Shown here is a 65-nucleotide RNA from Rattus norvegicus, a member of the family "U7 small nuclear RNA". It scores 36 bits against the family's covariance model. The organism belongs to Rattus, within Eukaryota. A reference for the family is Spycher et al. (1994), "3' end processing of mouse histone pre-mRNA: evidence for additional base-pairing between U7 snRNA and pre-mRNA", Nucleic Acids Res.
RNA sequence: GAAUUUUUACUGUUCUUUUAGAAUUUUUUUCUAGCAGCUUUUUUUGACUUUGGUCAGAAAACCUA
Numbered sequence: 001g002a003a004u005u006u007u008u009a010c011u012g013u014u015c016u017u018u019u020a021g022a023a024u025u026u027u028u029u030u031c032u033a034g035c036a037g038c039u040u041u042u043u044u045u046g047a048c049u050u051u052g053g054u055c056a057g058a059a060a061a062c063c064u065a
Stems, first nucleotide, its partner, number of pairs: 037062001040061008